[Rfam]
A member of the RNA family "Molybdenum/Tungsten riboswitch aptamer (Moco RNA motif)" from Lawsonibacter faecis, 137 nucleotides long. The source organism's lineage runs through Bacteria, Bacillati, Bacillota, Oscillospiraceae and Lawsonibacter. On this family, see Weinberg et al., Nucleic Acids Res 2007: "Identification of 22 candidate structured RNAs in bacteria using the CMfinder comparative genomics pipeline".
RNA sequence: AUUCAAUUCUUUCUCCGAGCCCGCGCGCCUAAGGGUCACUAGGGUGCGCCGGCCGGGACCGUCCAGAACGGUCCUUCGGGUCCACGCCGGAAACGGCGGGGCCUUCCGUGUUUGAAAAGGAGAGGUUACGAGGGUAC
Numbered sequence: 001a002u003u004c005a006a007u008u009c010u011u012u013c014u015c016c017g018a019g020c021c022c023g024c025g026c027g028c029c030u031a032a033g034g035g036u037c038a039c040u041a042g043g044g045u046g047c048g049c050c051g052g053c054c055g056g057g058a059c060c061g062u063c064c065a066g067a068a069c070g071g072u073c074c075u076u077c078g079g080g081u082c083c084a085c086g087c088c089g090g091a092a093a094c095g096g097c098g099g100g101g102c103c104u105u106c107c108g109u110g111u112u113u114g115a116a117a118a119g120g121a122g123a124g125g126u127u128a129c130g131a132g133g134g135u136a137c
Base pairs, nucleotide, nucleotide: 003132011124012123013122014121015120016119019053020052021051023049024048025047026046027045028044029043033040034039055075056074057073058072059071060070061069062068078104079103080102081101082100083099085098086097087096088095089094105115106114

It scores 80 bits against the family's covariance model.